[Rfam]
Nucleotides: 079
Stems, first nucleotide, its partner, number of pairs: 001079006013067009031049004
Number, partner (000 for none) and nucleotide at each position: 001079c002078c003077g004076c005075a006074u007000a008000u009000g010000u011000u012000u013067c014066g015065g016064g017063u018062u019061u020060c021059g022000a023000g024000g025000c026000a027000a028000c029000g030000u031049a032048a033047c034046c035000g036000u037000g038000u039000u040000u041000u042000a043000g044000u045000u046034g047033g048032u049031u050000c051000g052000u053000u054000g055000u056000c057000g058000a059021c060020g061019a062018a063017a064016c065015c066014u067013g068000c069000a070000c071000a072000a073000u074006g075005u076004g077003u078002g079001g

Rfam assigns this 79-nucleotide sequence from Oryctes borbonicus to the family "mir-981 microRNA precursor family".
A reference for the family is Legeai et al. (2010), "Bioinformatic prediction, deep sequencing of microRNAs and expression analysis during phenotypic plasticity in the pea aphid, Acyrthosiphon pisum", BMC Genomics.
Its family is annotated with miRNA-mediated post-transcriptional gene silencing and RISC complex in the Gene Ontology.